[Rfam]
RNA sequence: UCUCAUGCAGUGAUUCUCCAAGGGGUGGCACUUUCUGUUGUCAGAAAUAAAGCAAAGUGCUUCCUUUUAGAGAGUUACUUUCUGAGA
Numbered sequence: 001u002c003u004c005a006u007g008c009a010g011u012g013a014u015u016c017u018c019c020a021a022g023g024g025g026u027g028g029c030a031c032u033u034u035c036u037g038u039u040g041u042c043a044g045a046a047a048u049a050a051a052g053c054a055a056a057g058u059g060c061u062u063c064c065u066u067u068u069a070g071a072g073a074g075u076u077a078c079u080u081u082c083u084g085a086g087a
Stems, first nucleotide, its partner, number of pairs: 001087005007081001009079006016072003020068006027061008038052002